The family of this 49-nucleotide RNA sequence from Papaver nudicaule is "Plastid-rpoB 5UTR RNA". Lineage of the source: Eukaryota > Viridiplantae > Streptophyta > Euphyllophyta > Papaver. A search with the family's covariance model found it, with a score of 66 bits. The family has 49 seed sequences and 102 matches in Rfam 15.1. Rfam classes the family as a cis-regulatory element. About the family: Plastid rpoB is a non-coding RNA (ncRNA) recognised in plastids. It was found in the 5 prime untranslated region (5UTR) of a chloroplast-encoded RNA polymerase subunit (rpoB) in plastids, suggesting a posible cis-regulatory function. On this family, see Richter et al., Plant Commun 2023: "Retrograde signaling in plants: A critical review focusing on the GUN pathway and beyond". The base pairs follow the family's consensus structure, which was predicted with LocARNA.

RNA sequence: CUAUACUAUUCCUGAUUUUUCUGUCUUUCUCUCAUUCAUAGAGAACGGA
Numbered sequence: 001c002u003a004u005a006c007u008a009u010u011c012c013u014g015a016u017u018u019u020u021c022u023g024u025c026u027u028u029c030u031c032u033c034a035u036u037c038a039u040a041g042a043g044a045a046c047g048g049a
Stems, first nucleotide, its partner, number of pairs: 006048002009045003